[Rfam]
RNA: TPP riboswitch aptamer (THI element)
RNA sequence: CUCACAAGCUGGGGGAGCCCGAUGGGCUGAGAGGGGACACGUUCCCGACCCUUACGACCUGACGCAGAUCAUGCUGCCGUAGGGAAGCUGGUUCCGGAAAAC
Number, nucleotide and partner (000 for none) at each position: 001c000002u000003c000004a000005c000006a000007a089008g088009c087010u086011g052012g051013g050014g049015g000016a000017g027018c026019c025020c024021g000022a000023u000024g020025g019026g018027c017028u000029g000030a000031g000032a000033g000034g045035g044036g043037a042038c000039a000040c000041g000042u037043u036044c035045c034046c000047g000048a000049c014050c013051c012052u011053u000054a000055c000056g000057a000058c083059c082060u081061g080062a000063c000064g077065c076066a075067g074068a000069u000070c000071a000072u000073g000074c067075u066076g065077c064078c000079g000080u061081a060082g059083g058084g000085a000086a010087g009088c008089u007090g000091g000092u000093u000094c000095c000096g000097g000098a000099a000100a000101a000102c000